The family of this 136-nucleotide RNA from Astyanax mexicanus is "Small nucleolar RNA SNORA13".
Rfam 15.1 lists 1,034 matches to the family in 605 species.
ACA13 is a member of the H/ACA class of snoRNA that guide the sites of modification of uridines to pseudouridines.
Its family is annotated with RNA processing and nucleolus in the Gene Ontology.
Its Rfam clan is "SNORA13 clan".
The match comes from Rfam's covariance-model search (82 bits).

[Rfam]
RNA sequence: UGCCUUUAUGUGUUGCCCGUUCAUUAUCAUCUAGAGUGAAUGUGGUGUCAAAUAAGGCGCACAACAAUUUUUGCAGCAGCCUGAGUUAAUGGAAUAUAUUGUAUAUUUCUUUUUAAGUGCUGUGGCAAGAACACGA
Numbered sequence: 001u002g003c004c005u006u007u008a009u010g011u012g013u014u015g016c017c018c019g020u021u022c023a024u025u026a027u028c029a030u031c032u033a034g035a036g037u038g039a040a041u042g043u044g045g046u047g048u049c050a051a052a053u054a055a056g057g058c059g060c061a062c063a064a065c066a067a068u069u070u071u072u073g074c075a076g077c078a079g080c081c082u083g084a085g086u087u088a089a090u091g092g093a094a095u096a097u098a099u100u101g102u103a104u105a106u107u108u109c110u111u112u113u114u115a116a117g118u119g120c121u122g123u124g125g126c127a128a129g130a131a132c133a134c135g136a
Stems, first nucleotide, its partner, number of pairs: 002058005011050002014047004018042008070129004074124001076123005085118003089114001091110002095105002